A member of the RNA family "Plant signal recognition particle RNA" from Gossypium stocksii, 306 nucleotides long.
The family's RNA type in Rfam is non-coding RNA gene.
Gene Ontology terms of the family: signal recognition particle, endoplasmic reticulum targeting and SRP-dependent cotranslational protein targeting to membrane, signal sequence recognition.
On this family, see Wild et al., Curr Opin Struct Biol 2002: "Towards the structure of the mammalian signal recognition particle".
Taxonomically the source falls in Gossypium (Eukaryota, Viridiplantae, Streptophytina, rosids).
Its Rfam clan is "SRP clan".
[Rfam]
Nucleotides: 306
Stems, first nucleotide, its partner, number of pairs: 001040003004023004009018002028037003044305002047302007056293002061286005068279001070277008078264006086256001088255003092251002099248007107237002110235005116228004121223004126165005132159003136155001138153006166171001173218005184209003191202003
Number, partner (000 for none) and nucleotide at each position: 001040g002039c003038c004023g005022a006021g007020c008000c009018u010017g011000g012000u013000a014000g015000c016000g017010c018009a019000a020007g021006c022005u023004u024000g025000u026000a027000a028037c029036c030035c031000a032000a033000g034000u035030g036029g037028g038003g039002g040001c041000a042000u043000u044305a045304a046000c047302g048301u049300g050299a051298u052297g053296g054000a055000a056293c057292a058000c059000g060000a061286g062285u063284u064283c065282g066000a067000c068279u069000c070277a071276u072275u073274g074273g075272g076271u077270c078264g079263g080262u081261u082260c083259u084000a085000c086256a087000g088255u089254g090253g091000u092251u093250u094000a095000a096000u097000u098000c099248a100247g101246g102245c103244u104243u105242g106000c107237c108236c109000g110235u111234u112233c113232c114231a115000a116228g117227c118226c119225a120000a121223g122222a123221g124220u125000u126165g127164g128163a129162c130161c131000c132159a133158g134157g135000g136155g137000c138153a139152c140151g141150a142149g143148c144000g145000u146000a147000g148143g149142c150141u151140u152139g153138u154000u155136c156000g157134u158133c159132u160000u161130g162129g163128u164127u165126c166171u167000u168000a169000g170000a171166g172000a173218g174217g175216g176215g177214g178000a179000u180000a181000a182000a183000g184209c185208g186207u187000g188000a189000g190000g191202c192201u193200g194000g195000u196000u197000u198000c199000a200193c201192a202191g203000a204000g205000c206000a207186g208185c209184g210000a211000a212000c213000a214177c215176c216175u217174c218173c219000c220124g221123c222122u223121c224000c225119u226118g227117g228116c229000a230000g231114u232113g233112g234111a235110a236108g237107g238000a239000u240000a241000a242105c243104a244103a245102g246101u247100c248099u249000u250093g251092a252000u253090c254089c255088a256086u257000u258000c259083g260082g261081a262080a263079c264078c265000a266000c267000c268000a269000u270077g271076g272075c273074u274073c275072a276071a277070u278000a279068a280000g281000c282065u283064g284063a285062a286061c287000c288000c289000a290000a291000c292057u293056g294000g295000a296053c297052c298051a299050u300049c301048a302047u303000u304045u305044u306000u